[Rfam]
RNA sequence: GCUCGUGCUGAAGGCCUGUUUCCUAGGCUACAGACGGAGGACUAGUUCCUCAUUUCUCACGCCUAGGGGAAAGUCCCCGGACCUUGGGCAGAAAGUGCCGCGUGCUCAUGCACGCAGGUCAUCCCGUCUCACAGUAAGCCCGCCAAGAAGCAACCCCGCCAUCUGCGGCUGGCUAGCUGAGCGGCGUGAUAGCGGGGUGUCGUCCGUCUACUGUGCUAGUUACGCAGGCAGUGCGUCUUCCGUGCGCACCAACCAAACGGGGCUCAUUCUCAGUGCGGC
Numbered sequence: 001g002c003u004c005g006u007g008c009u010g011a012a013g014g015c016c017u018g019u020u021u022c023c024u025a026g027g028c029u030a031c032a033g034a035c036g037g038a039g040g041a042c043u044a045g046u047u048c049c050u051c052a053u054u055u056c057u058c059a060c061g062c063c064u065a066g067g068g069g070a071a072a073g074u075c076c077c078c079g080g081a082c083c084u085u086g087g088g089c090a091g092a093a094a095g096u097g098c099c100g101c102g103u104g105c106u107c108a109u110g111c112a113c114g115c116a117g118g119u120c121a122u123c124c125c126g127u128c129u130c131a132c133a134g135u136a137a138g139c140c141c142g143c144c145a146a147g148a149a150g151c152a153a154c155c156c157c158g159c160c161a162u163c164u165g166c167g168g169c170u171g172g173c174u175a176g177c178u179g180a181g182c183g184g185c186g187u188g189a190u191a192g193c194g195g196g197g198u199g200u201c202g203u204c205c206g207u208c209u210a211c212u213g214u215g216c217u218a219g220u221u222a223c224g225c226a227g228g229c230a231g232u233g234c235g236u237c238u239u240c241c242g243u244g245c246g247c248a249c250c251a252a253c254c255a256a257a258c259g260g261g262g263c264u265c266a267u268u269c270u271c272a273g274u275g276c277g278g279c
Base pairs, nucleotide, nucleotide: 003278004277005276006275007274008273009272010271011270014229015228016227017226018225019224022067023066024065025064026063027062028061037051038050039049040048041047072264073263075262076261077260078259087099088098089097090096100115101114102113103112104111105110117201118200119199123196124195125194126193127192129189130188131187132186140184141183142182143181168177169176170175231249232248233247234246235245236244
The family of this 279-nucleotide RNA sequence from Loxodonta africana is "RNase MRP". The sequence is in the family's curated seed alignment. By type it is a ribozyme. Taxonomically the source falls in Loxodonta (Eukaryota, Gnathostomata, Sarcopterygii, Theria). The family's consensus secondary structure is taken from published work. The literature on the family includes a 1993 paper in FASEB J by Schmitt et al., "Secondary structure of RNase MRP RNA as predicted by phylogenetic comparison". RNase MRP is an enzymatically active ribonucleoprotein with two distinct roles in eukaryotes. In mitochondria it plays a direct role in the initiation of mitochondrial DNA replication. In the nucleus it is involved in precursor rRNA processing, where it cleaves the internal transcribed spacer 1 between 18S and 5.8S rRNAs. Despite distinct functions, RNase MRP has been shown to be evolutionarily related to RNase P. Like eukaryotic RNase P, RNase MRP is not catalytically active without associated protein subunits.